mir-1285 microRNA precursor family: an 80-nucleotide RNA from Sapajus apella.
Rfam links the family to the GO terms miRNA-mediated post-transcriptional gene silencing and RISC complex.

RNA sequence: AUGGGAUCUUGCUAUAUUGCCCAGGCUGGUCUUGAGUCUGAGAAGUCAAGACCAGCCUGGGCAAUAUAGUGAGACCCCAU
Dot-bracket structure: ......((((((((....(((((((......(((..................))))))))))....))))))))......